The family of this 45-nucleotide sequence from Pontiella desulfatans is "Acido-Lenti-1 RNA". The family's RNA type in Rfam is small RNA. The organism belongs to Pontiella, within Bacteria.

RNA sequence: CCCAUGGCUUUGCCAUGGGCUAAAUUGUAUUGUGCUUUCAGCACA
Numbered sequence: 001c002c003c004a005u006g007g008c009u010u011u012g013c014c015a016u017g018g019g020c021u022a023a024a025u026u027g028u029a030u031u032g033u034g035c036u037u038u039c040a041g042c043a044c045a
Stems, first nucleotide, its partner, number of pairs: 001019008032044005